Shown here is a 182-nucleotide RNA sequence from Anaerobium acetethylicum, a member of the family "Lysine riboswitch aptamer". The match comes from Rfam's covariance-model search (96 bits). On this family, see Mandal et al., Cell 2003: "Riboswitches Control Fundamental Biochemical Pathways in Bacillus subtilis and Other Bacteria".
Nucleotides: 182
Base pairs, nucleotide, nucleotide: 006177007176008175009174010173011172017080018079019078020077021076022075023074024073025072032065035062036061037060038059084112085111086110087109088108089107090106091105092104093103094102113139114138116136117135118134119133120132121131122130123129142166143165144164145163146162147161148160149159
Number, partner (000 for none) and nucleotide at each position: 001000c002000u003000g004000u005000g006177a007176g008175g009174u010173a011172g012000a013000g014000g015000u016000u017080g018079c019078g020077a021076u022075a023074u024073u025072u026000a027000a028000c029000a030000g031000u032065c033000u034000u035062u036061a037060g038059u039000g040000g041000a042000g043000u044000u045000u046000g047000a048000g049000a050000a051000a052000c053000g054000u055000g056000g057000a058000a059038a060037c061036u062035a063000u064000u065032g066000a067000g068000a069000a070000g071000g072025a073024a074023a075022u076021g077020u078019c079018g080017c081000c082000g083000a084112a085111g086110c087109a088108g089107a090106u091105g092104g093103c094102a095000g096000g097000c098000u099000c100000g101000a102094u103093g104092c105091u106090g107089u108088c109087u110086g111085c112084u113139g114138g115000g116136c117135c118134u119133g120132c121131a122130g123129u124000u125000a126000a127000g128000a129123g130122c131121u132120g133119c134118a135117g136116g137000a138114c139113u140000g141000u142166c143165u144164c145163a146162a147161u148160g149159g150000a151000g152000a153000u154000c155000c156000g157000g158000u159149c160148u161147g162146u163145u164144g165143a166142g167000u168000u169000g170000u171000g172011c173010u174009a175008u176007c177006u178000c179000g180000g181000u182000u
The organism belongs to Anaerobium, within Bacteria. Rfam's curators write: Riboswitches are metabolite binding domains within certain messenger RNAs that serve as precision sensors for their corresponding targets.